[Rfam]
Vault RNA: a 101-nucleotide sequence from Cavia porcellus. A search with the family's covariance model found it, with a score of 75 bits. On this family, see Stadler et al., Mol Biol Evol 2009: "Evolution of Vault RNAs". Lineage of the source: Eukaryota > Eumetazoa > Amniota > Mammalia > Cavia.
RNA sequence: GGGCUGGCUUUAGCCCAGUGGUUCCUUCGAGUCUAGCUUCCCAACUACCUGGGCCGAUUGGUCCAGUGGUUUGAGACCUGCGGGCGCUCUCCAGUCCUUUU
Number, nucleotide and partner (000 for none) at each position: 001g000002g096003g095004c094005u093006g092007g091008c000009u000010u000011u000012a000013g085014c084015c083016c082017a000018g081019u080020g079021g078022u000023u000024c000025c000026u075027u074028c073029g072030a071031g000032u000033c000034u000035a000036g000037c000038u000039u000040c000041c000042c000043a000044a000045c000046u000047a000048c000049c000050u000051g000052g000053g000054c000055c000056g000057a000058u000059u000060g000061g000062u000063c000064c000065a000066g000067u000068g000069g000070u000071u030072u029073g028074a027075g026076a000077c000078c021079u020080g019081c018082g016083g015084g014085c013086g000087c000088u000089c000090u000091c007092c006093a005094g004095u003096c002097c000098u000099u000100u000101u000